[Rfam]
RNA: mir-1302 microRNA precursor family
RNA sequence: CUUCUAGUGUAACUAUGUCCUGUGCAAUAUUUGGGACAUACUUGUGCUAAAA
Numbered sequence: 001c002u003u004c005u006a007g008u009g010u011a012a013c014u015a016u017g018u019c020c021u022g023u024g025c026a027a028u029a030u031u032u033g034g035g036a037c038a039u040a041c042u043u044g045u046g047c048u049a050a051a052a
Base pairs, nucleotide, nucleotide: 006048007047008046009045010044011043012042014040015039016038018036019035020034021033022031